[Rfam]
RNA: c-di-AMP riboswitch aptamer (ydaO/yuaA leader)
RNA sequence: AUCAUAAAUCAGCCGAAUUUCGAACGAAAACGGGGGAACCAACUUCGCCGCAUCAAGAAGCGGCGUCCCGGGGUGAAUUCGUUCCGUGUAAAGUGCGGAAGCGAUAGGGCAGCCUGUUCUGGCCCGAACCCGUCAGCUAACCUCGUAGGCUGCAGGAACAGGACUC
Numbered sequence: 001a002u003c004a005u006a007a008a009u010c011a012g013c014c015g016a017a018u019u020u021c022g023a024a025c026g027a028a029a030a031c032g033g034g035g036g037a038a039c040c041a042a043c044u045u046c047g048c049c050g051c052a053u054c055a056a057g058a059a060g061c062g063g064c065g066u067c068c069c070g071g072g073g074u075g076a077a078u079u080c081g082u083u084c085c086g087u088g089u090a091a092a093g094u095g096c097g098g099a100a101g102c103g104a105u106a107g108g109g110c111a112g113c114c115u116g117u118u119c120u121g122g123c124c125c126g127a128a129c130c131c132g133u134c135a136g137c138u139a140a141c142c143u144c145g146u147a148g149g150c151u152g153c154a155g156g157a158a159c160a161g162g163a164c165u166c
Base pairs, nucleotide, nucleotide: 011151012150013149014148018029019028020027030146031145032144033143034142035141040070071131072130073129079104080103081102082101107125108124109123110122